[Rfam]
RNA sequence: UCGACAUUUCGACUGUAUUCACGGCGUGAAACAGGGGAUUACACUGUUUUUAAACGAAAAGUGAAUCAAUUAACAUAAUCGA
Number, nucleotide and partner (000 for none) at each position: 001u000002c081003g080004a079005c000006a076007u075008u073009u072010c000011g071012a070013c000014u068015g067016u000017a066018u065019u064020c063021a062022c061023g000024g000025c056026g055027u054028g050029a049030a048031a047032c046033a045034g044035g000036g000037g000038a000039u000040u000041a000042c000043a000044c034045u033046g032047u031048u030049u029050u028051u000052a000053a000054a027055c026056g025057a000058a000059a000060a000061g022062u021063g020064a019065a018066u017067c015068a014069a000070u012071u011072a009073a008074c000075a007076u006077a000078a000079u004080c003081g002082a000
A member of the RNA family "MIR6152 microRNA precursor family" from Nicotiana tabacum, 82 nucleotides long. Its family is annotated with miRNA-mediated post-transcriptional gene silencing and RISC complex in the Gene Ontology.